The record is a 116-nucleotide sequence from Halanaerobacter jeridensis, which matches "FMN riboswitch aptamer (RFN element)" in Rfam.
The base pairs follow the family's consensus structure, which is taken from published work.
The match comes from Rfam's covariance-model search (110 bits).

RNA sequence: AUAUAUCUUCGGGAACAGGUGUAAUUCCUAACCGACGGUUAGAGUCCGUGAGCCUUAAUGGCUGAACUGGUGUAAUUCCAGUACCGACAGUAUAGUCUGGAUGGGAGAAGAGAAAA
Numbered sequence: 001a002u003a004u005a006u007c008u009u010c011g012g013g014a015a016c017a018g019g020u021g022u023a024a025u026u027c028c029u030a031a032c033c034g035a036c037g038g039u040u041a042g043a044g045u046c047c048g049u050g051a052g053c054c055u056u057a058a059u060g061g062c063u064g065a066a067c068u069g070g071u072g073u074a075a076u077u078c079c080a081g082u083a084c085c086g087a088c089a090g091u092a093u094a095g096u097c098u099g100g101a102u103g104g105g106a107g108a109a110g111a112g113a114a115a116a
Base pairs, nucleotide, nucleotide: 004113006111007110008109009108010107017029018028019027031096032095033086034085035049036048037047038046044084045083052062053061054060066082067081068080069079070078088099089098090097